[Rfam]
RNA sequence: UGCGUUGAACACGGGAGUCCGGUGAGCCGGGCUGAGAGGAAGGUUCUCCAACCUUCGACCGUCGAACCUGAUCUGGAUCAUGCCAGCGCAGGGAGGCCAUCUCUGGGGCGC
Numbered sequence: 001u002g003c004g005u006u007g008a009a010c011a012c013g014g015g016a017g018u019c020c021g022g023u024g025a026g027c028c029g030g031g032c033u034g035a036g037a038g039g040a041a042g043g044u045u046c047u048c049c050a051a052c053c054u055u056c057g058a059c060c061g062u063c064g065a066a067c068c069u070g071a072u073c074u075g076g077a078u079c080a081u082g083c084c085a086g087c088g089c090a091g092g093g094a095g096g097c098c099a100u101c102u103c104u105g106g107g108g109c110g111c
Stems, first nucleotide, its partner, number of pairs: 006099002010095001011062004017032005039056007067092004073086004
Overview:
The family of this 111-nucleotide RNA sequence from Planctomonas sp. JC2975 is "TPP riboswitch aptamer (THI element)". NCBI's taxonomy places the organism under Bacteria, Actinomycetes, Micrococcales, Microbacteriaceae, Planctomonas. From the family's description: Vitamin B(1) in its active form thiamin pyrophosphate (TPP) is an essential coenzyme that is synthesised by coupling of pyrimidine and thiazole moieties in bacteria. The previously detected thiamin-regulatory element, thi box was extended, resulting in a new, highly conserved RNA secondary structure, the THI element, which is widely distributed in eubacteria and also occurs in some archaea. Analysis of operon structures identified a large number of new candidate thiamin-regulated genes, mostly transporters, in various prokaryotic organisms.